[Rfam]
The record is a 52-nucleotide sequence from Lentivirus humimdef1, which matches "HIV Ribosomal frameshift signal" in Rfam. The literature on the family includes a 2020 paper in Elife by Bao et al., "mRNA stem-loops can pause the ribosome by hindering A-site tRNA binding". It is annotated as a frameshift element. NCBI's taxonomy places the organism under Viruses, Riboviria, Pararnavirae, Revtraviricetes, Lentivirus humimdef1. Pairs were carried over by alignment from the consensus structure, which is taken from published work. Gene Ontology term of the family: viral translational frameshifting. Rfam describes the family as follows. This family represents the HIV Ribosomal frameshift signal.
RNA sequence: UUUUUUAGGGAAAAUUUGGCCUCUCAACAAAGGGAGGCCAGGGAACUUUCCU
Numbered sequence: 001u002u003u004u005u006u007a008g009g010g011a012a013a014a015u016u017u018g019g020c021c022u023c024u025c026a027a028c029a030a031a032g033g034g035a036g037g038c039c040a041g042g043g044a045a046c047u048u049u050c051c052u
Base pairs, nucleotide, nucleotide: 008052009051010050011049012048013047015042016041017040018039019038020037021036022035023034024033025032